[Rfam]
Nucleotides: 068
Stems, first nucleotide, its partner, number of pairs: 001068004
Number, partner (000 for none) and nucleotide at each position: 001068a002067a003066u004065g005000a006000a007000u008000g009000a010000u011000g012000a013000c014000a015000a016000a017000a018000u019000g020000u021000u022000u023000c024000g025000g026000u027000c028000c029000c030000a031000g032000a033000u034000g035000a036000u037000g038000u039000g040000g041000a042000a043000u044000g045000a046000u047000u048000c049000c050000a051000u052000u053000u054000c055000a056000u057000u058000u059000c060000u061000c062000u063000g064000a065004c066003a067002u068001u
The family of this 68-nucleotide RNA sequence from Sylvietta virens is "Small nucleolar RNA SNORD73". Rfam links the family to the GO terms nucleolus and RNA processing. The match comes from Rfam's covariance-model search (77 bits). On this family, see Rebane et al., Gene 1998: "A novel snoRNA (U73) is encoded within the introns of the human and mouse ribosomal protein S3a genes".